Rfam assigns this 132-nucleotide RNA sequence from Micromonospora wenchangensis to the family "c-di-AMP riboswitch aptamer (ydaO/yuaA leader)". The organism belongs to Micromonospora, within Bacteria. The base pairs follow the family's consensus structure. A search with the family's covariance model found it, with a score of 85 bits. Rfam describes the family as follows. This family represents a conserved RNA structure found upstream of the ydaO and yuaA genes in Bacillus subtilis and related genes in other bacteria.

[Rfam]
RNA sequence: GCGGUGCCACCGCCCAAUCGCCGUGCGGCGAGCCGGGGAACCGAGCACCUGGGGUGAAUCCGCGCCAGCGGUAGGGGCCACUUCCGUCCCGAACCCGUCAGCUAACCCGGUCGGCGGUCGACGGAAGGGAAA
Numbered sequence: 001g002c003g004g005u006g007c008c009a010c011c012g013c014c015c016a017a018u019c020g021c022c023g024u025g026c027g028g029c030g031a032g033c034c035g036g037g038g039a040a041c042c043g044a045g046c047a048c049c050u051g052g053g054g055u056g057a058a059u060c061c062g063c064g065c066c067a068g069c070g071g072u073a074g075g076g077g078c079c080a081c082u083u084c085c086g087u088c089c090c091g092a093a094c095c096c097g098u099c100a101g102c103u104a105a106c107c108c109g110g111u112c113g114g115c116g117g118u119c120g121a122c123g124g125a126a127g128g129g130a131a132a
Stems, first nucleotide, its partner, number of pairs: 011116004018031003032111006042051002052096003060071004074090004
Dot-bracket structure: ..........((((...(((........)))((((((....((......))(((.....((((....))))..((((.........))))...))).........)))))).))))................